[Rfam]
RNA sequence: CCAACGGCCCUUUUAAGGGCCACCACACUAUACGAAGAGCUCUUUA
Numbered sequence: 001c002c003a004a005c006g007g008c009c010c011u012u013u014u015a016a017g018g019g020c021c022a023c024c025a026c027a028c029u030a031u032a033c034g035a036a037g038a039g040c041u042c043u044u045u046a
Stems, first nucleotide, its partner, number of pairs: 006021006
Source information
The record is a 46-nucleotide sequence from Orchesella cincta, which matches "Histone 3' UTR stem-loop" in Rfam. Gene Ontology term of the family: mRNA 3'-end processing by stem-loop binding and cleavage. The mRNAs of metazoan histone genes lack a poly-A tail. 3' end processing occurs at a site between a highly conserved stem-loop (modelled by this family) and a purine rich region around 20 nts downstream (the histone downstream element, or HDE). The stem-loop is bound by a 31 kDa stem-loop binding protein (SLBP - also termed the histone hairpin binding protein, or HBP). Together with U7 snRNA binding of the HDE, SLBP binding nucleate s the formation of the processing complex. The organism belongs to Orchesella, within Eukaryota. It is annotated as a cis-regulatory element. Pairs were carried over by alignment from the consensus structure, which is taken from published work. It scores 36 bits against the family's covariance model.